[Rfam]
Nucleotides: 076
Base pairs, nucleotide, nucleotide: 001067002066003065004064
Number, partner (000 for none) and nucleotide at each position: 001067g002066a003065g004064a005000a006000a007000u008000g009000a010000g011000g012000a013000u014000g015000c016000u017000a018000u019000g020000u021000u022000u023000u024000g025000g026000u027000c028000u029000u030000a031000c032000u033000g034000u035000u036000a037000c038000u039000a040000u041000g042000a043000a044000g045000a046000c047000u048000u049000c050000a051000g052000a053000u054000c055000c056000a057000a058000c059000u060000c061000u062000g063000a064004u065003c066002u067001c068000a069000c070000u071000c072000c073000u074000a075000g076000c